[Rfam]
RNA sequence: ACUCACUCAAUUUGGAUGUGAUGUUCAAAUUGGCGCCACCACAACCUCCUUGAGUGAGCGA
Numbered sequence: 001a002c003u004c005a006c007u008c009a010a011u012u013u014g015g016a017u018g019u020g021a022u023g024u025u026c027a028a029a030u031u032g033g034c035g036c037c038a039c040c041a042c043a044a045c046c047u048c049c050u051u052g053a054g055u056g057a058g059c060g061a
Base pairs, nucleotide, nucleotide: 002058003057004056005055006054007053008052009051010050014046015045017043018042019041020040022038023037
Rfam assigns this 61-nucleotide sequence from Acyrthosiphon pisum to the family "mir-67 microRNA precursor family". Rfam's curators put it in the seed alignment. On this family, see Liu et al., BMC Genomics 2010: "MicroRNAs of Bombyx mori identified by Solexa sequencing". Gene Ontology terms of the family: RISC complex and miRNA-mediated post-transcriptional gene silencing. Pairs were carried over by alignment from the consensus structure, which was predicted with RNAalifold.